The record is an 83-nucleotide RNA from Chrysemys picta, which matches "mir-130 microRNA precursor family" in Rfam.
RNA sequence: CGCCGUCCUGGGCUCUUUUCACAUUGUGCUACUGUCUGAGCCCCUGCCAAGCAGUGCAAUGUCAAAAGGGCAUCGGGCAGGCG
Numbered sequence: 001c002g003c004c005g006u007c008c009u010g011g012g013c014u015c016u017u018u019u020c021a022c023a024u025u026g027u028g029c030u031a032c033u034g035u036c037u038g039a040g041c042c043c044c045u046g047c048c049a050a051g052c053a054g055u056g057c058a059a060u061g062u063c064a065a066a067a068g069g070g071c072a073u074c075g076g077g078c079a080g081g082c083g
Stems, first nucleotide, its partner, number of pairs: 001083003005078004010073001012071008022061009
Pairs were carried over by alignment from the consensus structure, which was predicted with PFOLD. Its family is annotated with RISC complex and miRNA-mediated post-transcriptional gene silencing in the Gene Ontology. For this family Rfam cites "Identification of tissue-specific microRNAs from mouse" (Lagos-Quintana et al., Curr Biol, 2002). It scores 88 bits against the family's covariance model.